Rfam assigns this 174-nucleotide sequence from Limosilactobacillus ingluviei to the family "Listeria sRNA rli28".
[Rfam]
Nucleotides: 174
Base pairs, nucleotide, nucleotide: 043148044147046145047144063084064083065082066081067080068079070077071076107127109125111123114120153169154168155167156166158164
Number, partner (000 for none) and nucleotide at each position: 001000a002000a003000g004000c005000u006000g007000a008000u009000g010000g011000u012000a013000u014000a015000a016000u017000c018000a019000a020000g021000c022000u023000u024000g025000c026000g027000a028000g029000a030000a031000g032000u033000u034000u035000u036000a037000u038000g039000g040000g041000c042000g043148g044147u045000g046145g047144c048000u049000g050000g051000u052000u053000u054000c055000u056000c057000g058000a059000a060000a061000u062000g063084g064083g065082g066081u067080g068079g069000u070077u071076c072000c073000a074000a075000u076071g077070g078000a079068c080067u081066a082065u083064u084063c085000u086000g087000u088000a089000g090000a091000a092000a093000g094000g095000a096000a097000g098000g099000c100000a101000g102000c103000c104000c105000a106000u107127g108000a109125g110000u111123g112000u113000c114120u115000a116000c117000c118000a119000g120114g121000c122000c123111c124000u125109c126000a127107u128000g129000c130000u131000g132000a133000u134000g135000u136000u137000g138000g139000c140000a141000u142000u143000c144047g145046c146000a147044a148043c149000c150000u151000u152000c153169g154168u155167c156166g157000u158164u159000g160000c161000g162000u163000u164158g165000u166156u167155g168154a169153c170000c171000u172000u173000u174000a
Source information
The family's RNA type in Rfam is small RNA. The base pairs follow the family's consensus structure, which was predicted with RNAalifold.